[Rfam]
RNA sequence: ACAGCCGGCUUUUCGGUCUCUGCCUUCAACUCUCCACUGCCCACUACCCACUGCCCACUGCCCCGGGGAGGAAAGUCCGGGCUCCACAGGGCGCGGUGAUGGAUAACGUCCACCCCCGGGACCGGUUCGGGCUCCCCGGCUCGAACCGCAAGCGGGCGGGAAAGUGCAACAGAAAGUAAACCGCCGGGGCAGUGUGAGUGGCUAGUGUGAGUGCGAGUGAAAAGGCGAAACAUCAUCCGUUGUCUUUUCACUCGCACUCACACUAGCCACUCACACUGCCCCGGUAAGGGUGAAACGGUGCGGGGCGAGAGCCCUUAAUGUAAGAGCGCACCAGCAGCCGGGUGACCGGCUGGCUCGGCAAACCCCACCGGGAGCAAGGUCAAACAGGGGACAGGGCCGGCCCGGCCCGUCACGAUCCCCGGGUAGACCGCUCGACGCCGCGGGCAACCGCGGUGCUAGAUAAAUGACCGUCGCCCGCCCGCAAGGGUGGGGACAAAACCCGGCUUACAGGCCGGCCGACCGA
Number, nucleotide and partner (000 for none) at each position: 001a000002c518003a000004g516005c515006c514007g513008g512009c511010u510011u000012u000013u000014c470015g469016g468017u467018c466019u000020c068021u067022g000023c065024c000025u000026u000027c000028a000029a000030c000031u000032c000033u000034c000035c000036a000037c000038u000039g000040c000041c000042c000043a000044c000045u000046a000047c000048c000049c000050a000051c000052u000053g000054c000055c000056c000057a000058c000059u000060g000061c000062c000063c000064c000065g023066g000067g021068g020069a000070g000071g000072a000073a506074a505075g504076u000077c503078c502079g501080g500081g499082c374083u373084c372085c371086a000087c000088a000089g403090g402091g401092c400093g000094c370095g369096g368097u367098g366099a000100u112101g111102g110103a109104u000105a000106a000107c000108g000109u103110c102111c101112a100113c000114c158115c156116c155117c154118g153119g000120g000121a000122c000123c000124g000125g000126u000127u000128c000129g000130g000131g000132c000133u000134c000135c000136c000137c000138g000139g000140c000141u000142c000143g000144a000145a000146c000147c000148g000149c000150a000151a000152g000153c118154g117155g116156g115157c000158g114159g365160g364161a000162a000163a000164g363165u362166g359167c358168a000169a000170c000171a000172g000173a000174a000175a000176g000177u000178a000179a000180a000181c289182c288183g285184c284185c283186g282187g281188g280189g279190c278191a277192g276193u275194g274195u273196g272197a271198g270199u269200g268201g267202c266203u265204a264205g263206u262207g261208u260209g259210a258211g257212u256213g255214c254215g253216a252217g251218u250219g249220a248221a247222a246223a245224g244225g243226c242227g241228a240229a000230a000231c000232a000233u000234c000235a000236u000237c000238c000239g000240u228241u227242g226243u225244c224245u223246u222247u221248u220249c219250a218251c217252u216253c215254g214255c213256a212257c211258u210259c209260a208261c207262a206263c205264u204265a203266g202267c201268c200269a199270c198271u197272c196273a195274c194275a193276c192277u191278g190279c189280c188281c187282c186283g185284g184285u183286a000287a000288g182289g181290g000291u000292g000293a000294a000295a000296c000297g332298g331299u330300g329301c328302g327303g000304g000305g000306c000307g000308a000309g000310a000311g000312c000313c000314c000315u000316u000317a000318a000319u000320g000321u000322a000323a000324g000325a000326g000327c302328g301329c300330a299331c298332c297333a000334g354335c352336a351337g350338c349339c348340g347341g346342g000343u000344g000345a000346c341347c340348g339349g338350c337351u336352g335353g000354c334355u000356c000357g000358g167359c166360a000361a000362a165363c164364c160365c159366c098367a097368c096369c095370g094371g085372g084373a083374g082375c000376a000377a000378g429379g428380u427381c426382a000383a000384a000385c000386a000387g000388g420389g419390g418391a416392c000393a000394g408395g407396g406397c405398c404399g000400g092401c091402c090403c089404g398405g397406c396407c395408c394409g000410u000411c000412a000413c000414g000415a000416u391417c000418c390419c389420c388421g000422g000423g000424u000425a000426g381427a380428c379429c378430g000431c000432u000433c000434g000435a000436c455437g454438c453439c452440g451441c450442g449443g448444g000445c000446a000447a000448c443449c442450g441451c440452g439453g438454u437455g436456c000457u000458a000459g000460a000461u000462a000463a000464a000465u000466g018467a017468c016469c015470g014471u000472c000473g000474c000475c000476c000477g000478c000479c000480c000481g000482c000483a000484a000485g000486g000487g000488u000489g000490g000491g000492g000493a000494c000495a000496a000497a000498a000499c081500c080501c079502g078503g077504c075505u074506u073507a000508c000509a000510g010511g009512c008513c007514g006515g005516c004517c000518g002519a000520c000521c000522g000523a000